[Rfam]
RNA: HgcG RNA (Pab40)
Organism: Archaeoglobus fulgidus
RNA sequence: ACCUUUUCGGGAAAGUUAGGAGCAUAGGUUAAAUAUCAGUUUUGACUACUAUUAUUGUCCCCGAUCGGGGAAGAGGCAGAGGUGGCAGUGCCGACGAUGAAGCUUCUCUGCGAGCUCGGGGACACACCAUGUCGAUAGGUCCCCUUAGGAGUGAGGCGAAAGCCUUACGAUGAGUAUGGGGCAACCCGGACAUGGGACAGCCCCCAGAGGUCAGCCACUCUGAGAGGGCAAAGCCUGCGAUGAGGGGUGGUGUUACUCUGGGGGCAGAUUUCU
Numbered sequence: 001a002c003c004u005u006u007u008c009g010g011g012a013a014a015g016u017u018a019g020g021a022g023c024a025u026a027g028g029u030u031a032a033a034u035a036u037c038a039g040u041u042u043u044g045a046c047u048a049c050u051a052u053u054a055u056u057g058u059c060c061c062c063g064a065u066c067g068g069g070g071a072a073g074a075g076g077c078a079g080a081g082g083u084g085g086c087a088g089u090g091c092c093g094a095c096g097a098u099g100a101a102g103c104u105u106c107u108c109u110g111c112g113a114g115c116u117c118g119g120g121g122a123c124a125c126a127c128c129a130u131g132u133c134g135a136u137a138g139g140u141c142c143c144c145u146u147a148g149g150a151g152u153g154a155g156g157c158g159a160a161a162g163c164c165u166u167a168c169g170a171u172g173a174g175u176a177u178g179g180g181g182c183a184a185c186c187c188g189g190a191c192a193u194g195g196g197a198c199a200g201c202c203c204c205c206a207g208a209g210g211u212c213a214g215c216c217a218c219u220c221u222g223a224g225a226g227g228g229c230a231a232a233g234c235c236u237g238c239g240a241u242g243a244g245g246g247g248u249g250g251u252g253u254u255a256c257u258c259u260g261g262g263g264g265c266a267g268a269u270u271u272c273u
Base pairs, nucleotide, nucleotide: 058122059121060120061119062118063117064116072107073106074105075104076103077102127195128194129193130192131191132190133189137145138144139143200265201264202263203262204261205260206259207258208257209256215250216249217248218247219246220245221244227235228234229233